A member of the RNA family "L2-Alphaproteobacteria ribosomal protein leader" from Cognatiyoonia sediminum, 72 nucleotides long. It scores 56 bits against the family's covariance model. On this family, see Eckert and Weinberg, BMC Microbiol 2020: "Discovery of 20 novel ribosomal leader candidates in bacteria and archaea".

RNA sequence: GGGCACCUACGGGGGCCUUCACCAUAUAGCCUCGGCCUAAACACCGGGGCGCCAAGCAAACGGAAGAAGCUA
Numbered sequence: 001g002g003g004c005a006c007c008u009a010c011g012g013g014g015g016c017c018u019u020c021a022c023c024a025u026a027u028a029g030c031c032u033c034g035g036c037c038u039a040a041a042c043a044c045c046g047g048g049g050c051g052c053c054a055a056g057c058a059a060a061c062g063g064a065a066g067a068a069g070c071u072a
Base pairs, nucleotide, nucleotide: 001018002017003016004015006014007013008012029050030049031048032047033046034045035044